Glycine riboswitch aptamer: a 134-nucleotide RNA sequence from Sphaerotilus hippei. Gene Ontology term of the family: glycine biosynthetic process. It scores 54 bits against the family's covariance model.

RNA sequence: UGUCACCUCACUGGAGAGAGGUGGCAUCGCACGGCCCACGGGACGUCGAGACCACCCACCGAAGGGGCAAGCGGCUGCACCGGCUCAACCGGUCGGCUGUCAAUCUCUCAGGUAAAGCGGACAGCGAGGGCCCC
Dot-bracket structure: .....((((.(((......((((.............................)))).(((((..(((...(((((((................)))))))....))))).)))........))).)))).....
Numbered sequence: 001u002g003u004c005a006c007c008u009c010a011c012u013g014g015a016g017a018g019a020g021g022u023g024g025c026a027u028c029g030c031a032c033g034g035c036c037c038a039c040g041g042g043a044c045g046u047c048g049a050g051a052c053c054a055c056c057c058a059c060c061g062a063a064g065g066g067g068c069a070a071g072c073g074g075c076u077g078c079a080c081c082g083g084c085u086c087a088a089c090c091g092g093u094c095g096g097c098u099g100u101c102a103a104u105c106u107c108u109c110a111g112g113u114a115a116a117g118c119g120g121a122c123a124g125c126g127a128g129g130g131c132c133c134c
Stems, first nucleotide, its partner, number of pairs: 006129004011124003020056004058113003061109002065107003071100007